[Rfam]
A member of the RNA family "Small nucleolar RNA SNORA72" from Macaca mulatta, 132 nucleotides long. Rfam links the family to the GO terms nucleolus and RNA processing. The family's RNA type in Rfam is H/ACA-box small nucleolar RNA. Rfam 15.1 lists 1,541 matches to the family in 547 species. Rfam describes the family as follows. U72 is a member of the H/ACA class of snoRNAs. It is one of the family's seed sequences.
RNA sequence: UUAUGAAUAUUCUCGCUAUUCCGAUUUUGUAAUAAUCAGGACAGGCUAAACAUUCACAAUAUUAAGACCAUGCAUGUAUCCCUAGACCUAGUUAUUUCCCCAGGUCUGGUUUCAUAAAUGCUGGUGAUAAAA
Numbered sequence: 001u002u003a004u005g006a007a008u009a010u011u012c013u014c015g016c017u018a019u020u021c022c023g024a025u026u027u028u029g030u031a032a033u034a035a036u037c038a039g040g041a042c043a044g045g046c047u048a049a050a051c052a053u054u055c056a057c058a059a060u061a062u063u064a065a066g067a068c069c070a071u072g073c074a075u076g077u078a079u080c081c082c083u084a085g086a087c088c089u090a091g092u093u094a095u096u097u098c099c100c101c102a103g104g105u106c107u108g109g110u111u112u113c114a115u116a117a118a119u120g121c122u123g124g125u126g127a128u129a130a131a132a
Stems, first nucleotide, its partner, number of pairs: 004056002016044002019041003023037004067125004072121002082109008091100001